[Rfam]
RNA sequence: GUCUAACAUGUCGGGCAGAGACACG
Number, nucleotide and partner (000 for none) at each position: 001g016002u015003c014004u013005a000006a000007c025008a000009u023010g022011u021012c020013g004014g003015g002016c001017a000018g000019a000020g012021a011022c010023a009024c000025g007

The record is a 25-nucleotide RNA sequence from Furovirus cerealis, which matches "Pseudoknot of upstream pseudoknot domain (UPD) of the 3'UTR" in Rfam.
For this family Rfam cites "Molecular characterization of a new furovirus mainly infecting rye" (Koenig et al., Arch Virol, 1999).
The sequence is in the family's curated seed alignment.
Rfam links the family to the GO terms positive regulation of viral translation and regulation of viral transcription.
The family's RNA type in Rfam is cis-regulatory element.